[Rfam]
Nucleotides: 085
Base pairs, nucleotide, nucleotide: 001085003083004082005081
Number, partner (000 for none) and nucleotide at each position: 001085g002000c003083a004082a005081a006000a007000a008000u009000g010000a011000u012000g013000a014000a015000g016000a017000a018000c019000a020000u021000u022000u023000g024000g025000u026000c027000u028000g029000a030000a031000u032000c033000a034000u035000u036000g037000a038000u039000g040000u041000g042000g043000a044000a045000u046000g047000a048000u049000u050000u051000c052000a053000u054000a055000u056000c057000a058000c059000a060000c061000u062000a063000g064000c065000c066000u067000u068000c069000a070000a071000a072000g073000u074000u075000c076000u077000c078000u079000g080000a081005u082004u083003u084000c085001c

A member of the RNA family "Small nucleolar RNA R160" from Citrus x clementina, 85 nucleotides long. Rfam describes the family as follows. snoR160 is a C/D box small nucleolar RNA, which acts as a methylation guide for 25S ribosomal RNA in plants. snoR160 has been alternatively named snoZ270 in rice. The match comes from Rfam's covariance-model search (50 bits). The base pairs follow the family's consensus structure. The literature on the family includes a 2003 paper in Nucleic Acids Res by Chen et al., "The high diversity of snoRNAs in plants: identification and comparative study of 120 snoRNA genes from Oryza sativa". NCBI's taxonomy places the organism under Eukaryota, Mesangiospermae, Pentapetalae, malvids, Citrus. Rfam 15.1 lists 799 matches to the family in 221 species.